Source information:
Shown here is a 96-nucleotide RNA sequence from Oncorhynchus tshawytscha, a member of the family "Vault RNA". This family of RNAs are found as part of the enigmatic vault ribonucleoprotein complex. The complex consists of a major vault protein (MVP), two minor vault proteins (VPARP and TEP1), and several small untranslated RNA molecules. It has been suggested that the vault complex is involved in drug resistance. Rfam classes the family as a non-coding RNA gene.
RNA sequence: GCGCUGGUGUAGCUCAGUGGUUACUCUUCUAAAAUUUCUCUACAGAAUGUUCUGUACCCUGCAAGGGGUCGAACCACGGGGCUGUCCAGUGUUUUG
Numbered sequence: 001g002c003g004c005u006g007g008u009g010u011a012g013c014u015c016a017g018u019g020g021u022u023a024c025u026c027u028u029c030u031a032a033a034a035u036u037u038c039u040c041u042a043c044a045g046a047a048u049g050u051u052c053u054g055u056a057c058c059c060u061g062c063a064a065g066g067g068g069u070c071g072a073a074c075c076a077c078g079g080g081g082c083u084g085u086c087c088a089g090u091g092u093u094u095u096g
Stems, first nucleotide, its partner, number of pairs: 002091006013080003017077004025072002
Lineage of the source: Eukaryota > Opisthokonta > Deuterostomia > Chordata > Oncorhynchus.